A member of the RNA family "MIR535 microRNA precursor family" from Gossypium mustelinum, 94 nucleotides long. The match comes from Rfam's covariance-model search (87 bits). Its family is annotated with miRNA-mediated post-transcriptional gene silencing and RISC complex in the Gene Ontology.

RNA sequence: AUUGUCAAUUGACAAUGAGAGAGAGCACGCUUGUUGCCAUUCAUGCAAGGGCAUGGAUGUAUACAAGUGUGCUCUCUGUCGUUGUCAUAUGAUU
Numbered sequence: 001a002u003u004g005u006c007a008a009u010u011g012a013c014a015a016u017g018a019g020a021g022a023g024a025g026c027a028c029g030c031u032u033g034u035u036g037c038c039a040u041u042c043a044u045g046c047a048a049g050g051g052c053a054u055g056g057a058u059g060u061a062u063a064c065a066a067g068u069g070u071g072c073u074c075u076c077u078g079u080c081g082u083u084g085u086c087a088u089a090u091g092a093u094u
Base pairs, nucleotide, nucleotide: 010087011086012085013084014083016081017080020077021076023074025072026071027070028069029068030067031066032065033064034063